The record is a 59-nucleotide RNA sequence from Cyanobium sp. PCC 7001, which matches "Cyanobacterial functional RNA 1" in Rfam. NCBI's taxonomy places the organism under Bacteria, Bacillati, Synechococcales, Prochlorococcaceae, Cyanobium.
[Rfam]
RNA sequence: GUGGGGGCUUCACAGCUCACACACUCCUCACACCCUCCGGCCCGGCACGUCCGGGCCUU
Numbered sequence: 001g002u003g004g005g006g007g008c009u010u011c012a013c014a015g016c017u018c019a020c021a022c023a024c025u026c027c028u029c030a031c032a033c034c035c036u037c038c039g040g041c042c043c044g045g046c047a048c049g050u051c052c053g054g055g056c057c058u059u
Stems, first nucleotide, its partner, number of pairs: 001022003005018004039057007
The family's consensus secondary structure is taken from published work.